[Rfam]
Shown here is a 73-nucleotide RNA from Fannyhessea vaginae, a member of the family "tRNA".
The base pairs follow the family's consensus structure, which is taken from published work.
The match comes from Rfam's covariance-model search (61 bits).
The source organism's lineage runs through Bacteria, Coriobacteriia, Coriobacteriales, Atopobiaceae and Fannyhessea vaginae.
The family's RNA type in Rfam is transfer RNA.

RNA sequence: GGCCUCGUAGCUCAGGGGAUAGAGCACAAGUUUCCUAAACUUGGUGUCGUUGGUUCGAAUCCAAUCGGGGUCA
Number, nucleotide and partner (000 for none) at each position: 001g072002g071003c070004c069005u068006c067007g066008u000009a000010g025011c024012u023013c022014a000015g000016g000017g000018g000019a000020u000021a000022g013023a012024g011025c010026a000027c043028a042029a041030g040031u039032u000033u000034c000035c000036u000037a000038a000039a031040c030041u029042u028043g027044g000045u000046g000047u000048c000049g065050u064051u063052g062053g061054u000055u000056c000057g000058a000059a000060u000061c053062c052063a051064a050065u049066c007067g006068g005069g004070g003071u002072c001073a000